Shown here is a 133-nucleotide RNA sequence from Psychrobacillus psychrotolerans, a member of the family "FMN riboswitch aptamer (RFN element)".
RNA sequence: AUUCAUCUUCGGGGCAGGGUGCAAUUCCCGACCGGCGGUAUUAGAAAUUUAUUUCUUCAGCCCGCGAACCUUAACAGGUUGAUUUGGUUAAAUUCCAAAGCCGACAGUAUAGUCUGGAUGGGAGAAGGUGAAG
Numbered sequence: 001a002u003u004c005a006u007c008u009u010c011g012g013g014g015c016a017g018g019g020u021g022c023a024a025u026u027c028c029c030g031a032c033c034g035g036c037g038g039u040a041u042u043a044g045a046a047a048u049u050u051a052u053u054u055c056u057u058c059a060g061c062c063c064g065c066g067a068a069c070c071u072u073a074a075c076a077g078g079u080u081g082a083u084u085u086g087g088u089u090a091a092a093u094u095c096c097a098a099a100g101c102c103g104a105c106a107g108u109a110u111a112g113u114c115u116g117g118a119u120g121g122g123a124g125a126a127g128g129u130g131a132a133g
Base pairs, nucleotide, nucleotide: 003131004130005129006128007127008126009125010124017029018028019027031113032112033103034102035065036064037063038062060101061100068079069078070077083099084098085097086096087095105116106115107114

NCBI's taxonomy places the organism under Bacteria, Bacillota, Bacilli, Caryophanales, Psychrobacillus.